The record is a 193-nucleotide RNA from Aspergillus fumigatus, which matches "U2 spliceosomal RNA" in Rfam. U2 is a small nuclear RNA (snRNA) component of the spliceosome (involved in pre-mRNA splicing). Complementary binding between U2 snRNA (in an area lying towards the 5' end but 3' to hairpin I) and the branchpoint sequence (BPS) of the intron results the bulging out of an unpaired adenosine, on the BPS, which initiates a nucleophilic attack at the intronic 5' splice site, thus starting the first of two transesterification reactions that mediate splicing. A reference for the family is Thomas et al. (1990), "The spliceosomal snRNAs of Caenorhabditis elegans", Nucleic Acids Res. The sequence is in the family's curated seed alignment. The base pairs follow the family's consensus structure, which is taken from published work.

RNA sequence: CCAGCUCUCUUUGCCUUUUGGCUUAGAUCAAGUGUAGUAUCUGUUCUUUUCAGUUUAAUCUCUGAAAGUGUUCUAAGGAACACAACAUUGAUUAAUCUCAUUUUUGGAUCCCGUGGUGAGGCCUCUGUGCUUGCGCAUGCCUCGCCACACAGUGUCAUCGGGCUUACACUACCCCCGAUUGACGCGAACCACC
Numbered sequence: 001c002c003a004g005c006u007c008u009c010u011u012u013g014c015c016u017u018u019u020g021g022c023u024u025a026g027a028u029c030a031a032g033u034g035u036a037g038u039a040u041c042u043g044u045u046c047u048u049u050u051c052a053g054u055u056u057a058a059u060c061u062c063u064g065a066a067a068g069u070g071u072u073c074u075a076a077g078g079a080a081c082a083c084a085a086c087a088u089u090g091a092u093u094a095a096u097c098u099c100a101u102u103u104u105u106g107g108a109u110c111c112c113g114u115g116g117u118g119a120g121g122c123c124u125c126u127g128u129g130c131u132u133g134c135g136c137a138u139g140c141c142u143c144g145c146c147a148c149a150c151a152g153u154g155u156c157a158u159c160g161g162g163c164u165u166a167c168a169c170u171a172c173c174c175c176c177g178a179u180u181g182a183c184g185c186g187a188a189c190c191a192c193c
Stems, first nucleotide, its partner, number of pairs: 008027003013022003048067006068083006113148008126137004152185005158178005